[Rfam]
RNA sequence: ACCAGGUGCGCCCCGGUGGUCCGGAGUGCAGGCUUCAAGCCUGUAGGCGGUCAGAAACCACAGCGGUUCGAUUUCACUUUCCUGGU
Numbered sequence: 001a002c003c004a005g006g007u008g009c010g011c012c013c014c015g016g017u018g019g020u021c022c023g024g025a026g027u028g029c030a031g032g033c034u035u036c037a038a039g040c041c042u043g044u045a046g047g048c049g050g051u052c053a054g055a056a057a058c059c060a061c062a063g064c065g066g067u068u069c070g071a072u073u074u075c076a077c078u079u080u081c082c083u084g085g086u
Stems, first nucleotide, its partner, number of pairs: 001086006008078001011026001013024004027045006047061001049059003063077001065075002